[Rfam]
Rfam assigns this 115-nucleotide sequence from Ancylomarina salipaludis to the family "Group II catalytic intron D1-D4-2". Its family is annotated with Group II intron splicing in the Gene Ontology. A search with the family's covariance model found it, with a score of 92 bits. Rfam 15.1 lists 1,231 matches to the family in 625 species.

RNA sequence: GCUAGGCCCACCGGUGUCGUUUUACAGGAAAGGGCAUCAAACCACCUAAAGGUGCUGUGGUAAAGAGCCAUGGUAUUGAGCGUUUAGGAGAAUCUAUGCCAUGAGCAUAGCAGGU
Numbered sequence: 001g002c003u004a005g006g007c008c009c010a011c012c013g014g015u016g017u018c019g020u021u022u023u024a025c026a027g028g029a030a031a032g033g034g035c036a037u038c039a040a041a042c043c044a045c046c047u048a049a050a051g052g053u054g055c056u057g058u059g060g061u062a063a064a065g066a067g068c069c070a071u072g073g074u075a076u077u078g079a080g081c082g083u084u085u086a087g088g089a090g091a092a093u094c095u096a097u098g099c100c101a102u103g104a105g106c107a108u109a110g111c112a113g114g115u
Stems, first nucleotide, its partner, number of pairs: 001009001013038006020031004043114001045088006051077002054074003058070004094110005